[Rfam]
RNA sequence: GAGUUCCUUCGGGGUCGGGUGUAAGUCCCAACCGGCGGUACAGCCCGCGAGCUUUUUUAAGCAGGAUUUGGUGUGAUUCCAAAGCCGACAGUAUAGUCUGGAUGAGAGAAGGAAUAC
Numbered sequence: 001g002a003g004u005u006c007c008u009u010c011g012g013g014g015u016c017g018g019g020u021g022u023a024a025g026u027c028c029c030a031a032c033c034g035g036c037g038g039u040a041c042a043g044c045c046c047g048c049g050a051g052c053u054u055u056u057u058u059a060a061g062c063a064g065g066a067u068u069u070g071g072u073g074u075g076a077u078u079c080c081a082a083a084g085c086c087g088a089c090a091g092u093a094u095a096g097u098c099u100g101g102a103u104g105a106g107a108g109a110a111g112g113a114a115u116a117c
Stems, first nucleotide, its partner, number of pairs: 003115008017029003031097002033087002035048004043085002051062003067083005089100003
The family of this 117-nucleotide RNA from Lysinibacillus alkalisoli is "FMN riboswitch aptamer (RFN element)". The family's consensus secondary structure is taken from published work. NCBI's taxonomy places the organism under Bacteria, Bacilli, Caryophanales, Bacillaceae, Lysinibacillus. It scores 115 bits against the family's covariance model.